[Rfam]
RNA sequence: GUGGGUGUAGCUCAGUUGGCAGAGCGCCAGGUUGUGGUCCUGGAUGUCGUGGGUUCAAGUCCCAUCACUCACC
Numbered sequence: 001g002u003g004g005g006u007g008u009a010g011c012u013c014a015g016u017u018g019g020c021a022g023a024g025c026g027c028c029a030g031g032u033u034g035u036g037g038u039c040c041u042g043g044a045u046g047u048c049g050u051g052g053g054u055u056c057a058a059g060u061c062c063c064a065u066c067a068c069u070c071a072c073c
Stems, first nucleotide, its partner, number of pairs: 001072007010025004027043005049065005

A member of the RNA family "tRNA" from Thermopolyspora flexuosa, 73 nucleotides long. A search with the family's covariance model found it, with a score of 65 bits. Taxonomically the source falls in Thermopolyspora (Bacteria, Actinomycetota, Actinomycetes, Streptosporangiales).